[Rfam]
RNA sequence: GUUUUCGGAUAAUCGCGGUUUGAGUUAAUCAAACUGAGGAAAGUCCAUGCUCACACAGUCUGAGAUGUCUGUAGUGUUCGUGCUCAGCGAAAAAAUAAGCUGAGGUAUUUCUUUAUAGAGAUAACGGCAGGAAAAACGGCUAAGGUGUAUGUCUACAUUAGGCUCGAGUAUCCUUGAAAGUGCCACAGUGACGAAGCAAUAGGAGAAAUCUUAUUGUUGGAACGCGGUAAACCCCUCGAGUGAGCAACCCAAACAAAAAGGUAGGGGCACUUUUUGCGGCGAAAUGAAACGCUAGCAAAAAGACAGUAUUUAUUGUAGAUAGAUGAUUAUCUAAGUUAUUUUGCUCCCUGUAAAAUAACUGGACAAAACAUGGCUUAUAGAA
Numbered sequence: 001g002u003u004u005u006c007g008g009a010u011a012a013u014c015g016c017g018g019u020u021u022g023a024g025u026u027a028a029u030c031a032a033a034c035u036g037a038g039g040a041a042a043g044u045c046c047a048u049g050c051u052c053a054c055a056c057a058g059u060c061u062g063a064g065a066u067g068u069c070u071g072u073a074g075u076g077u078u079c080g081u082g083c084u085c086a087g088c089g090a091a092a093a094a095a096u097a098a099g100c101u102g103a104g105g106u107a108u109u110u111c112u113u114u115a116u117a118g119a120g121a122u123a124a125c126g127g128c129a130g131g132a133a134a135a136a137c138g139g140c141u142a143a144g145g146u147g148u149a150u151g152u153c154u155a156c157a158u159u160a161g162g163c164u165c166g167a168g169u170a171u172c173c174u175u176g177a178a179a180g181u182g183c184c185a186c187a188g189u190g191a192c193g194a195a196g197c198a199a200u201a202g203g204a205g206a207a208a209u210c211u212u213a214u215u216g217u218u219g220g221a222a223c224g225c226g227g228u229a230a231a232c233c234c235c236u237c238g239a240g241u242g243a244g245c246a247a248c249c250c251a252a253a254c255a256a257a258a259a260g261g262u263a264g265g266g267g268c269a270c271u272u273u274u275u276g277c278g279g280c281g282a283a284a285u286g287a288a289a290c291g292c293u294a295g296c297a298a299a300a301a302g303a304c305a306g307u308a309u310u311u312a313u314u315g316u317a318g319a320u321a322g323a324u325g326a327u328u329a330u331c332u333a334a335g336u337u338a339u340u341u342u343g344c345u346c347c348c349u350g351u352a353a354a355a356u357a358a359c360u361g362g363a364c365a366a367a368a369c370a371u372g373g374c375u376u377a378u379a380g381a382a
Stems, first nucleotide, its partner, number of pairs: 004382003007378001008331007016036006041376003045373005050244005055072004060067001078239003082235001083104006105125001106123006126234002129174004138164003144159006180232002182228003197216008248266003270302007303316005334360011
The family of this 382-nucleotide sequence from Tetragenococcus muriaticus is "Bacterial RNase P class B".
Its family is annotated with tRNA processing, ribonuclease P activity and dimeric ribonuclease P complex in the Gene Ontology.
A search with the family's covariance model found it, with a score of 315 bits.
Taxonomically the source falls in Tetragenococcus muriaticus (Bacteria, Bacilli, Lactobacillales, Enterococcaceae).
Its Rfam clan is "RNaseP clan".
Rfam describes the family as follows. Ribonuclease P (RNase P) is a ubiquitous endoribonuclease, found in archaea, bacteria and eukarya as well as chloroplasts and mitochondria. Its best characterised activity is the generation of mature 5'-ends of tRNAs by cleaving the 5'-leader elements of precursor-tRNAs.
The family's RNA type in Rfam is ribozyme.